[Rfam]
RNA sequence: CCACUUUACUAAAGCUCUUUUUGUGAUGCAAGAGUUGUGGGUAAAUUGCAUCACAAAAAGAGCUUUAGUAAAGUGG
Numbered sequence: 001c002c003a004c005u006u007u008a009c010u011a012a013a014g015c016u017c018u019u020u021u022u023g024u025g026a027u028g029c030a031a032g033a034g035u036u037g038u039g040g041g042u043a044a045a046u047u048g049c050a051u052c053a054c055a056a057a058a059a060g061a062g063c064u065u066u067a068g069u070a071a072a073g074u075g076g
Stems, first nucleotide, its partner, number of pairs: 004073003009068009021056006028049003
RNA: mir-11 microRNA precursor family
Organism: Gossypium arboreum